This 303-nucleotide sequence from Apostichopus japonicus belongs to the Rfam family "Nuclear RNase P". The source organism's lineage runs through Eukaryota, Eumetazoa, Holothuroidea, Aspidochirotacea and Apostichopus. The family's RNA type in Rfam is ribozyme. Ribonuclease P (RNase P) is a ubiquitous endoribonuclease, found in archaea, bacteria and eukarya as well as chloroplasts and mitochondria.
RNA sequence: UGGGUGCUAUGUUCACUUAUUGGGCUACACACAAGUACUUGUUACUUUAUAAUUGCCCAGGGGAAGGUCUGAGGGAAAGGCUUCACAUUCAUCUAACUGGUGAAUCUAAUAAGAUGGGUGUAUGGAACAAGAAAUAUGGCCCUAACAGGAUACUAUGACUAAUGCAAGGCACACAUCUUGUGGGUCUUAAAGUCUACUGUAUCAGUGUGUUGGUUGAUAUUUCAUGCAGCCUGCGAAGUAAGACAGAUUAGUGAAACAAGUUAAGACAAACUUGUAACUCGAUUCAGACUACACUGUCACCCA
Numbered sequence: 001u002g003g004g005u006g007c008u009a010u011g012u013u014c015a016c017u018u019a020u021u022g023g024g025c026u027a028c029a030c031a032c033a034a035g036u037a038c039u040u041g042u043u044a045c046u047u048u049a050u051a052a053u054u055g056c057c058c059a060g061g062g063g064a065a066g067g068u069c070u071g072a073g074g075g076a077a078a079g080g081c082u083u084c085a086c087a088u089u090c091a092u093c094u095a096a097c098u099g100g101u102g103a104a105u106c107u108a109a110u111a112a113g114a115u116g117g118g119u120g121u122a123u124g125g126a127a128c129a130a131g132a133a134a135u136a137u138g139g140c141c142c143u144a145a146c147a148g149g150a151u152a153c154u155a156u157g158a159c160u161a162a163u164g165c166a167a168g169g170c171a172c173a174c175a176u177c178u179u180g181u182g183g184g185u186c187u188u189a190a191a192g193u194c195u196a197c198u199g200u201a202u203c204a205g206u207g208u209g210u211u212g213g214u215u216g217a218u219a220u221u222u223c224a225u226g227c228a229g230c231c232u233g234c235g236a237a238g239u240a241a242g243a244c245a246g247a248u249u250a251g252u253g254a255a256a257c258a259a260g261u262u263a264a265g266a267c268a269a270a271c272u273u274g275u276a277a278c279u280c281g282a283u284u285c286a287g288a289c290u291a292c293a294c295u296g297u298c299a300c301c302c303a
Stems, first nucleotide, its partner, number of pairs: 001303004008296002012255006020060005033047005069287005079231004089103005104119005120227007140213002256275007